Notes:
The family of this 170-nucleotide RNA from Clostridium sp. CAG:62 is "Clostridiales-1 RNA". Taxonomically the source falls in Clostridium (Bacteria, Bacillota, Clostridia, Clostridiaceae). The match comes from Rfam's covariance-model search (118 bits). Pairs were carried over by alignment from the consensus structure, which is taken from published work.
RNA sequence: AGAUGCCAAGGGCAAAAAGUUCAAAAGAUAUUCGUGCUUGCACGAAUAGGCUUUUGACCUUGGGCCCCGCCAAACAUGAGAAAGUAGCGAUUUACAAAGUAAAUCAGCGGAUUUCGAAUGUUUGUAGAAUUGUGAAAGCUGCUUUGCAGCGAAACAAUUCGUCGGCAUCU
Numbered sequence: 001a002g003a004u005g006c007c008a009a010g011g012g013c014a015a016a017a018a019g020u021u022c023a024a025a026a027g028a029u030a031u032u033c034g035u036g037c038u039u040g041c042a043c044g045a046a047u048a049g050g051c052u053u054u055u056g057a058c059c060u061u062g063g064g065c066c067c068c069g070c071c072a073a074a075c076a077u078g079a080g081a082a083a084g085u086a087g088c089g090a091u092u093u094a095c096a097a098a099g100u101a102a103a104u105c106a107g108c109g110g111a112u113u114u115c116g117a118a119u120g121u122u123u124g125u126a127g128a129a130u131u132g133u134g135a136a137a138g139c140u141g142c143u144u145u146g147c148a149g150c151g152a153a154a155c156a157a158u159u160c161g162u163c164g165g166c167a168u169c170u
Stems, first nucleotide, its partner, number of pairs: 001170007010067004017061003021057007029049001032045005071124007080115004087108002089105005127160007138150004